[Rfam]
RNA sequence: CGGCUGUAGCCAUAGAAAGCGGGAAGAAAAACUGGUCGGCUCGUUGCUCUUAGAUCCAUCGGCGACUCGCUUACCAUUCUUCCCACAUCC
Dot-bracket structure: ....................((((((((.....(((.((.(.((((.............))))).)).))).....))))))))......
A member of the RNA family "Small nucleolar RNA snoR109" from Dioscorea zingiberensis, 90 nucleotides long.
By type it is an H/ACA-box small nucleolar RNA.
The family's consensus secondary structure was predicted with WAR.